[Rfam]
RNA sequence: ACUCUCUACCCAUGUUCGCUGGCGUAGCCGGCUACAUGCCCAGGCAGUCGAGACCUUCGAGGCUGCGGUGCGAUUUCCGCACUGGUUGUUCUGCUCCACCGACGCACACCGCGUUCAUUCACCUAACCCACAAGGGAUCUCCUCCCUCGCGGGCGG
Numbered sequence: 001a002c003u004c005u006c007u008a009c010c011c012a013u014g015u016u017c018g019c020u021g022g023c024g025u026a027g028c029c030g031g032c033u034a035c036a037u038g039c040c041c042a043g044g045c046a047g048u049c050g051a052g053a054c055c056u057u058c059g060a061g062g063c064u065g066c067g068g069u070g071c072g073a074u075u076u077c078c079g080c081a082c083u084g085g086u087u088g089u090u091c092u093g094c095u096c097c098a099c100c101g102a103c104g105c106a107c108a109c110c111g112c113g114u115u116c117a118u119u120c121a122c123c124u125a126a127c128c129c130a131c132a133a134g135g136g137a138u139c140u141c142c143u144c145c146c147u148c149g150c151g152g153g154c155g156g
Stems, first nucleotide, its partner, number of pairs: 011038004018032006044066006052087004067083006123156002131149001133147005